The family of this 85-nucleotide RNA from Arabis alpina is "Small nucleolar RNA R21". It scores 70 bits against the family's covariance model. Pairs were carried over by alignment from the consensus structure, which was predicted with PFOLD. Lineage of the source: Eukaryota > Embryophyta > Tracheophyta > Magnoliopsida > Arabis.
RNA sequence: CAUCCCUGUGAUGACUGAUAAAGAUAAAAAUGUUAAAAGUAGUGACUGAUUAUCUUCUUGAUGAAAUCUUUUGAUCUGAGGGAUU
Numbered sequence: 001c002a003u004c005c006c007u008g009u010g011a012u013g014a015c016u017g018a019u020a021a022a023g024a025u026a027a028a029a030a031u032g033u034u035a036a037a038a039g040u041a042g043u044g045a046c047u048g049a050u051u052a053u054c055u056u057c058u059u060g061a062u063g064a065a066a067u068c069u070u071u072u073g074a075u076c077u078g079a080g081g082g083a084u085u
Base pairs, nucleotide, nucleotide: 002084003083004082005081006080